TPP riboswitch aptamer (THI element): a 103-nucleotide sequence from Osedax symbiont Rs1. It scores 76 bits against the family's covariance model. Its family is annotated with thiamine pyrophosphate binding in the Gene Ontology. The organism belongs to Oceanospirillaceae, within Bacteria.
[Rfam]
RNA sequence: GCACGUUAGUCGGGGGGCCUUUAGGGCUGAGAUGGUAUUUAAUACUGGACCCGCUGAACCUGAUCCAACUGAUAUUGGCGUAGGGAACUAACUUGAUCGAUAA
Numbered sequence: 001g002c003a004c005g006u007u008a009g010u011c012g013g014g015g016g017g018c019c020u021u022u023a024g025g026g027c028u029g030a031g032a033u034g035g036u037a038u039u040u041a042a043u044a045c046u047g048g049a050c051c052c053g054c055u056g057a058a059c060c061u062g063a064u065c066c067a068a069c070u071g072a073u074a075u076u077g078g079c080g081u082a083g084g085g086a087a088c089u090a091a092c093u094u095g096a097u098c099g100a101u102a103a
Base pairs, nucleotide, nucleotide: 006091007090008089009088010087011053012052013051014050017027018026019025020024034046035045036044037043038042059084060083061082062081065078066077067076068075